A member of the RNA family "Wolbachia sRNA 46" from Trichonephila clavata, 122 nucleotides long. For this family Rfam cites "Wolbachia small noncoding RNAs and their role in cross-kingdom communications" (Mayoral et al., Proc Natl Acad Sci U S A, 2014).
RNA sequence: GUAGCCCCUAUGAUGUCAUUCCAGUGCUUGACACUGGGAUCCAGAAGACUUAAUUUCAACCAAAUAAUAAAGGCUAGAUCCCAGUGUCACGCACUGGGAUGACACCCCACUUAACCGUCAUA
Number, nucleotide and partner (000 for none) at each position: 001g000002u000003a000004g000005c000006c000007c000008c000009u000010a000011u000012g000013a000014u104015g103016u102017c101018a100019u099020u098021c097022c096023a095024g094025u093026g092027c091028u000029u089030g088031a087032c086033a085034c084035u083036g082037g081038g080039a079040u078041c077042c000043a075044g074045a000046a000047g000048a000049c000050u000051u000052a000053a000054u000055u000056u000057c000058a000059a000060c000061c000062a000063a000064a000065u000066a000067a000068u000069a000070a000071a000072g000073g000074c044075u043076a000077g041078a040079u039080c038081c037082c036083a035084g034085u033086g032087u031088c030089a029090c000091g027092c026093a025094c024095u023096g022097g021098g020099a019100u018101g017102a016103c015104a014105c000106c000107c000108c000109a000110c000111u000112u000113a000114a000115c000116c000117g000118u000119c000120a000121u000122a000